RNA sequence: UGGCAAGUGAUGAUUUUACUUGGAUUCCCCUUCAGAUCAUAUUGGGUGAUGUAAACUCCAAGCUUCUGAUGCU
Numbered sequence: 001u002g003g004c005a006a007g008u009g010a011u012g013a014u015u016u017u018a019c020u021u022g023g024a025u026u027c028c029c030c031u032u033c034a035g036a037u038c039a040u041a042u043u044g045g046g047u048g049a050u051g052u053a054a055a056c057u058c059c060a061a062g063c064u065u066c067u068g069a070u071g072c073u
Stems, first nucleotide, its partner, number of pairs: 002073004
A member of the RNA family "Small nucleolar RNA snoR60" from Microthlaspi erraticum, 73 nucleotides long. Its Rfam clan is "SNORD101 clan". The family's consensus secondary structure was predicted with PFOLD. The literature on the family includes a 2000 paper in J Biol Chem by Barneche et al., "Fibrillarin genes encode both a conserved nucleolar protein and a novel small nucleolar RNA involved in ribosomal RNA methylation in Arabidopsis thaliana". Its family is annotated with nucleolus and RNA processing in the Gene Ontology. The family's RNA type in Rfam is C/D-box small nucleolar RNA. The family has 10 seed sequences and 1,133 matches in Rfam 15.1.